[Rfam]
RNA sequence: AGCAACAGGGAAGAUCCGCACUUGACGCCAACCUACACAUACAAGAAUGCAUUGUCAUUCAAUCCCCAAAGCGUUAGGGAAGGUCUCCAGACUAGUUUGGGAUUCUUUGGGAUCCCUGUAUCUGUAAAUGGAUACUUUAAUAACGCUAUCCUUGUAUAGUGUUGCAUUCCUAAUUACUUUAUAUAUUACAAAGUUUUGAGUAGUAAAGUAAAGGGAUGAUGUCGAACUGGUCAUAGCAAAAAGUUAUUGCGGAUACUACCUUGUAGUAGUUAACAGAAUGGAGACUACUCUCCCAAGUUGC
Numbered sequence: 001a002g003c004a005a006c007a008g009g010g011a012a013g014a015u016c017c018g019c020a021c022u023u024g025a026c027g028c029c030a031a032c033c034u035a036c037a038c039a040u041a042c043a044a045g046a047a048u049g050c051a052u053u054g055u056c057a058u059u060c061a062a063u064c065c066c067c068a069a070a071g072c073g074u075u076a077g078g079g080a081a082g083g084u085c086u087c088c089a090g091a092c093u094a095g096u097u098u099g100g101g102a103u104u105c106u107u108u109g110g111g112a113u114c115c116c117u118g119u120a121u122c123u124g125u126a127a128a129u130g131g132a133u134a135c136u137u138u139a140a141u142a143a144c145g146c147u148a149u150c151c152u153u154g155u156a157u158a159g160u161g162u163u164g165c166a167u168u169c170c171u172a173a174u175u176a177c178u179u180u181a182u183a184u185a186u187u188a189c190a191a192a193g194u195u196u197u198g199a200g201u202a203g204u205a206a207a208g209u210a211a212a213g214g215g216a217u218g219a220u221g222u223c224g225a226a227c228u229g230g231u232c233a234u235a236g237c238a239a240a241a242a243g244u245u246a247u248u249g250c251g252g253a254u255a256c257u258a259c260c261u262u263g264u265a266g267u268a269g270u271u272a273a274c275a276g277a278a279u280g281g282a283g284a285c286u287a288c289u290c291u292c293c294c295a296a297g298u299u300g301c
Base pairs, nucleotide, nucleotide: 002301003300004299005298006297008294009293010292011291014254015253016252017251018250019249022077023076024075025074026073027072028071045060046059047058048057049056081286082285085283086282087281088280101115159222160221161220165218166217167216168215169214170213174211175210176209177208186206187205188204189203255270256269257268258267259266